[Rfam]
Shown here is a 170-nucleotide RNA sequence from Photobacterium angustum, a member of the family "Molybdenum/Tungsten riboswitch aptamer (Moco RNA motif)".
RNA sequence: UAACUGCCAUAACUCCGAGCAUUUUUCACUAAGUUACUAAGCGAUGUUGGACAUUAAUAUAUACGUUCAAAAGUUGAUAGGUGAUUAAUGCCAGUGACGAUUUGUCACCAGGGUUUAUUUAGAAAUGAAUUGACCUCCCGUAUUUGGAAAGGUGUUCCGUGGCGAAACAA
Dot-bracket structure: ..........(((.((..(((((..((((...((((......................................))))..))))..)))))..(((((.....)))))..(((((.(((((....))))).)))))((.......))...)).)))..............